[Rfam]
RNA sequence: AAGUGAAAAAGGCAAACUAUGGGAAAUCAUAGGACGCAAAGCCAAGGGCCUGACCCACAAUCAGUGGAUGGUAGCCGGUUGCCACA
Numbered sequence: 001a002a003g004u005g006a007a008a009a010a011g012g013c014a015a016a017c018u019a020u021g022g023g024a025a026a027u028c029a030u031a032g033g034a035c036g037c038a039a040a041g042c043c044a045a046g047g048g049c050c051u052g053a054c055c056c057a058c059a060a061u062c063a064g065u066g067g068a069u070g071g072u073a074g075c076c077g078g079u080u081g082c083c084a085c086a
Stems, first nucleotide, its partner, number of pairs: 012037002017032006040080004046076002048072003055067004